This 425-nucleotide sequence from Ephemerocybe angulata belongs to the Rfam family "Nuclear RNase P". It scores 81 bits against the family's covariance model. The family is grouped with related families in Rfam's "RNaseP clan". The organism belongs to Ephemerocybe, within Eukaryota.
[Rfam]
RNA sequence: ACAGAUGAAAAACCGCGAGGCUCGCCCCGUACCGAGAGAGGGAUCUUCCUUCUCUCAAACUUCGCGAGCGGGUUAAGGUCUGAGUAUUCUAGUCAUUCUCGAUCGGUUCUAGCUGGACCAGGGCUCUAAAGGCCUUCGCAGCGUAUCAGAAAUCCGACUCCAAUUUCAUGGCGGUCUCUCGGGGCCGGACCCAAAGACGGGCUUUCAGCCAAGAGGGUCAUUCCCUUUUGCUAGGGAAAGUGGAGAUGGUGGUCUUGGAAUUCGCUGCAAUGACCGGGCUGGCCGCUUUCGACUCGCGGGUCCACGGUGGAAACACUGCGUCUGCGAGGCGGUCGGUCCUUUAGCUCACUUCGCGGUGCAUCUUUCAUGGGUCUUCCGAUUGGGAGAUCCUUGGUGUAACUCGAUUCAGACUACUCUUCGUCUGU
Numbered sequence: 001a002c003a004g005a006u007g008a009a010a011a012a013c014c015g016c017g018a019g020g021c022u023c024g025c026c027c028c029g030u031a032c033c034g035a036g037a038g039a040g041g042g043a044u045c046u047u048c049c050u051u052c053u054c055u056c057a058a059a060c061u062u063c064g065c066g067a068g069c070g071g072g073u074u075a076a077g078g079u080c081u082g083a084g085u086a087u088u089c090u091a092g093u094c095a096u097u098c099u100c101g102a103u104c105g106g107u108u109c110u111a112g113c114u115g116g117a118c119c120a121g122g123g124c125u126c127u128a129a130a131g132g133c134c135u136u137c138g139c140a141g142c143g144u145a146u147c148a149g150a151a152a153u154c155c156g157a158c159u160c161c162a163a164u165u166u167c168a169u170g171g172c173g174g175u176c177u178c179u180c181g182g183g184g185c186c187g188g189a190c191c192c193a194a195a196g197a198c199g200g201g202c203u204u205u206c207a208g209c210c211a212a213g214a215g216g217g218u219c220a221u222u223c224c225c226u227u228u229u230g231c232u233a234g235g236g237a238a239a240g241u242g243g244a245g246a247u248g249g250u251g252g253u254c255u256u257g258g259a260a261u262u263c264g265c266u267g268c269a270a271u272g273a274c275c276g277g278g279c280u281g282g283c284c285g286c287u288u289u290c291g292a293c294u295c296g297c298g299g300g301u302c303c304a305c306g307g308u309g310g311a312a313a314c315a316c317u318g319c320g321u322c323u324g325c326g327a328g329g330c331g332g333u334c335g336g337u338c339c340u341u342u343a344g345c346u347c348a349c350u351u352c353g354c355g356g357u358g359c360a361u362c363u364u365u366c367a368u369g370g371g372u373c374u375u376c377c378g379a380u381u382g383g384g385a386g387a388u389c390c391u392u393g394g395u396g397u398a399a400c401u402c403g404a405u406u407c408a409g410a411c412u413a414c415u416c417u418u419c420g421u422c423u424g425u
Stems, first nucleotide, its partner, number of pairs: 001425004007419003012357007020069005034056010080409005091280004105119005120136006138268006160252003358397005